[Rfam]
Nucleotides: 100
Base pairs, nucleotide, nucleotide: 013088014087017084018083019082020081023078024077025076026075027074028073029072030071031070032069034067035066036065037064038063040061041060
Number, partner (000 for none) and nucleotide at each position: 001000g002000u003000c004000g005000c006000c007000g008000c009000c010000g011000g012000c013088g014087c015000u016000g017084a018083u019082u020081c021000g022000c023078u024077u025076g026075g027074u028073g029072c030071a031070g032069g033000u034067c035066g036065g037064g038063a039000a040061c041060g042000g043000a044000g045000c046000g047000a048000c049000u050000u051000c052000g053000u054000g055000g056000a057000u058000c059000c060041c061040g062000a063038u064037c065036c066035u067034g068000c069032c070031u071030u072029g073028c074027a075026u076025c077024a078023a079000c080000u081020g082019a083018a084017u085000c086000g087014g088013c089000g090000a091000c092000g093000g094000a095000g096000u097000g098000c099000g100000a
Shown here is a 100-nucleotide RNA sequence from Apostasia shenzhenica, a member of the family "MIR168 microRNA precursor family". The family has 10 seed sequences and 518 matches in Rfam 15.1. Its family is annotated with RISC complex and miRNA-mediated post-transcriptional gene silencing in the Gene Ontology. A reference for the family is Reinhart et al. (2002), "MicroRNAs in plants", Genes Dev.